[Rfam]
RNA: Actino-pnp RNA
Organism: Saccharothrix australiensis
RNA sequence: GCCGGUCCUCGGUAGUGGCCCCCUGGCCGAUUCGCCUCCCAGGGGACUUCGAUCGAAGACCGGC
Numbered sequence: 001g002c003c004g005g006u007c008c009u010c011g012g013u014a015g016u017g018g019c020c021c022c023c024u025g026g027c028c029g030a031u032u033c034g035c036c037u038c039c040c041a042g043g044g045g046a047c048u049u050c051g052a053u054c055g056a057a058g059a060c061c062g063g064c
Stems, first nucleotide, its partner, number of pairs: 001064007009056005017048002020045007029036001